The record is an 88-nucleotide RNA from Paenibacillus sp. TCA20, which matches "BsrC" in Rfam.
[Rfam]
RNA sequence: UACAUUUCACACAACAAAAGCCCUACCUCUCUUUUGUCCUUACGGCUCCGAUGACCGCGCCAGUUUGAAUGAAAAUCAUAAAAUCUCG
Numbered sequence: 001u002a003c004a005u006u007u008c009a010c011a012c013a014a015c016a017a018a019a020g021c022c023c024u025a026c027c028u029c030u031c032u033u034u035u036g037u038c039c040u041u042a043c044g045g046c047u048c049c050g051a052u053g054a055c056c057g058c059g060c061c062a063g064u065u066u067g068a069a070u071g072a073a074a075a076u077c078a079u080a081a082a083a084u085c086u087c088g
Stems, first nucleotide, its partner, number of pairs: 034068003039063002041059001043057003047053001

The source organism's lineage runs through Bacteria, Bacillati, Bacillota, Caryophanales and Paenibacillus. The family has 29 seed sequences and 572 matches in Rfam 15.1. The literature on the family includes a 2008 paper in Gene by Saito et al., "Novel small RNA-encoding genes in the intergenic regions of Bacillus subtilis". The family's RNA type in Rfam is small RNA. The match comes from Rfam's covariance-model search (68 bits). The 301 nucleotide sequence from Kouji Nakamura has been trimmed to a highly conserved ~85 nucleotide long core to form this family.